[Rfam]
RNA sequence: UUUCAUAACAGCACUCCUCAAACCAAGACCUAUAGGGUGUCUAAACGCGUCUUUCAUAUCCUUGCCUUAGGGUGGCGAGGAAAUAGUAACUCCA
Number, nucleotide and partner (000 for none) at each position: 001u000002u000003u000004c000005a000006u000007a000008a000009c000010a000011g000012c039013a038014c037015u036016c035017c000018u000019c000020a000021a000022a000023c000024c000025a053026a052027g051028a050029c049030c000031u000032a000033u000034a000035g016036g015037g014038u013039g012040u000041c000042u000043a000044a000045a000046c000047g000048c000049g029050u028051c027052u026053u025054u000055c000056a000057u000058a000059u000060c080061c079062u078063u077064g076065c075066c074067u000068u000069a000070g000071g000072g000073u000074g066075g065076c064077g063078a062079g061080g060081a000082a000083a000084u000085a000086g000087u000088a000089a000090c000091u000092c000093c000094a000

This 94-nucleotide RNA from Ahtivirus sagseatwo belongs to the Rfam family "PhotoRC-II RNA". The family's consensus secondary structure is taken from published work.